[Rfam]
RNA sequence: GUAGCGUUAUCCGAAAAGCUUACAGAGUAGGAA
Number, nucleotide and partner (000 for none) at each position: 001g000002u000003a020004g019005c018006g000007u000008u000009a000010u032011c031012c030013g000014a000015a000016a000017a000018g005019c004020u003021u000022a000023c000024a000025g000026a000027g000028u000029a000030g012031g011032a010033a000

Rfam assigns this 33-nucleotide RNA sequence from Oryza sativa to the family "DUF805b RNA". Pairs were carried over by alignment from the consensus structure, which is taken from published work. Rfam classes the family as a cis-regulatory element. Its Rfam clan is "DUF805 clan". A search with the family's covariance model found it, with a score of 37 bits.